[Rfam]
RNA sequence: UUAAAUGUUUUCUAGGGUUCCGCAACUAUAAAUGUUGGUCUGGUCCGAGAGAAAACUCACGCUAGACGUGCCACGGAAGGAUAAAAGCCUGGGAGAG
Numbered sequence: 001u002u003a004a005a006u007g008u009u010u011u012c013u014a015g016g017g018u019u020c021c022g023c024a025a026c027u028a029u030a031a032a033u034g035u036u037g038g039u040c041u042g043g044u045c046c047g048a049g050a051g052a053a054a055a056c057u058c059a060c061g062c063u064a065g066a067c068g069u070g071c072c073a074c075g076g077a078a079g080g081a082u083a084a085a086a087g088c089c090u091g092g093g094a095g096a097g
Stems, first nucleotide, its partner, number of pairs: 007056006015046002020043002022040001023037004058070004072092001074095001078090003
Dot-bracket structure: ......((((((..((...(((((((.......))))..).)).))....)))))).((((.....)))).(.[...(((.......))).)..]..
A member of the RNA family "Guanidine-I riboswitch aptamer" from Bacillus sp. FJAT-49711, 97 nucleotides long. The family has 100 seed sequences and 1,509 matches in Rfam 15.1. The source organism's lineage runs through Bacteria, Bacillati, Bacillota, Bacilli and Bacillus. Pairs were carried over by alignment from the consensus structure. On this family, see Trachman RJ 3rd and Ferre-D'Amare, RNA 2021: "An uncommon [K(+)(Mg(2+))2] metal ion triad imparts stability and selectivity to the Guanidine-I riboswitch".